[Rfam]
RNA sequence: UGGAGGGUUGAGAAGGUGUGGCAGCAUGAUCACAGUGCUGCCACAACUGGUUAAAGCCUCCGAGAGCAACAUCGCAACCCAGCGAAUCACAGUAAGUGGUCUUUGUGAGACCAGCGCUGUGUUGUGUACACCAC
Dot-bracket structure: .(((((........(((.(((((((...........)))))))..)))........)))))....................((..(..(((.....((((.(......)))))....))).).)).........
Numbered sequence: 001u002g003g004a005g006g007g008u009u010g011a012g013a014a015g016g017u018g019u020g021g022c023a024g025c026a027u028g029a030u031c032a033c034a035g036u037g038c039u040g041c042c043a044c045a046a047c048u049g050g051u052u053a054a055a056g057c058c059u060c061c062g063a064g065a066g067c068a069a070c071a072u073c074g075c076a077a078c079c080c081a082g083c084g085a086a087u088c089a090c091a092g093u094a095a096g097u098g099g100u101c102u103u104u105g106u107g108a109g110a111c112c113a114g115c116g117c118u119g120u121g122u123u124g125u126g127u128a129c130a131c132c133a134c
Stems, first nucleotide, its partner, number of pairs: 002061005015048003019043007082125002086122001089120003097113004102109001
A member of the RNA family "Small nucleolar RNA SNORA47" from Scleropages formosus, 134 nucleotides long. Pairs were carried over by alignment from the consensus structure, which was predicted with WAR. The organism belongs to Scleropages, within Eukaryota. By type it is an H/ACA-box small nucleolar RNA.